[Rfam]
Rfam assigns this 67-nucleotide RNA sequence from Bacillus sp. J14TS2 to the family "Bacillaceae-1 RNA". NCBI's taxonomy places the organism under Bacteria, Bacillati, Caryophanales, Bacillaceae, Bacillus. It is annotated as a small RNA. The base pairs follow the family's consensus structure, which is taken from published work.
RNA sequence: UAAUCAGGAUCAAAGGCUAAAACCGCGACGUCCUGUUGCAAUGCCUUUGUGACCAAUGUCCUGUUGG
Numbered sequence: 001u002a003a004u005c006a007g008g009a010u011c012a013a014a015g016g017c018u019a020a021a022a023c024c025g026c027g028a029c030g031u032c033c034u035g036u037u038g039c040a041a042u043g044c045c046u047u048u049g050u051g052a053c054c055a056a057u058g059u060c061c062u063g064u065u066g067g
Stems, first nucleotide, its partner, number of pairs: 011049007025039005053067005